[Rfam]
Rfam assigns this 265-nucleotide RNA sequence from Clostridium perfringens to the family "Bacterial large signal recognition particle RNA". The signal recognition particle (SRP) is a universally conserved ribonucleoprotein involved in the co-translational targeting of proteins to membranes. The literature on the family includes a 2002 paper in Nucleic Acids Res by Regalia et al., "Prediction of signal recognition particle RNA genes".
RNA sequence: CCGUGCUAGAUGGGGAGUUAGCGGUGCCCUGUAACCUGCAAUCCGCUACAGCAGGAUCGAAGUCCUCAUAGAGGCUCUAACUUGUGGAGUCUGCCCUAUGUAAGUGGUGUUGAGAGUUGGGCCCCACGCAAUGGAAACCUGUGAACCUCGUCAGGUCCGGAAGGAAGCAGCGAUAAGCAGUCAUUUUCAUGUGCCGUGGAUACGUCUGGCUUGAGCUAACUGCAUAGGUAACGUUCAUAAGUUAUUGUCGAAGUGAGGUGCACGG
Numbered sequence: 001c002c003g004u005g006c007u008a009g010a011u012g013g014g015g016a017g018u019u020a021g022c023g024g025u026g027c028c029c030u031g032u033a034a035c036c037u038g039c040a041a042u043c044c045g046c047u048a049c050a051g052c053a054g055g056a057u058c059g060a061a062g063u064c065c066u067c068a069u070a071g072a073g074g075c076u077c078u079a080a081c082u083u084g085u086g087g088a089g090u091c092u093g094c095c096c097u098a099u100g101u102a103a104g105u106g107g108u109g110u111u112g113a114g115a116g117u118u119g120g121g122c123c124c125c126a127c128g129c130a131a132u133g134g135a136a137a138c139c140u141g142u143g144a145a146c147c148u149c150g151u152c153a154g155g156u157c158c159g160g161a162a163g164g165a166a167g168c169a170g171c172g173a174u175a176a177g178c179a180g181u182c183a184u185u186u187u188c189a190u191g192u193g194c195c196g197u198g199g200a201u202a203c204g205u206c207u208g209g210c211u212u213g214a215g216c217u218a219a220c221u222g223c224a225u226a227g228g229u230a231a232c233g234u235u236c237a238u239a240a241g242u243u244a245u246u247g248u249c250g251a252a253g254u255g256a257g258g259u260g261c262a263c264g265g
Stems, first nucleotide, its partner, number of pairs: 001265006009058003012030004017025003035055005064258003068254002073249003079243010092233002095228006103221002106217003114212009124199005129191002132189005139180004148173004156165003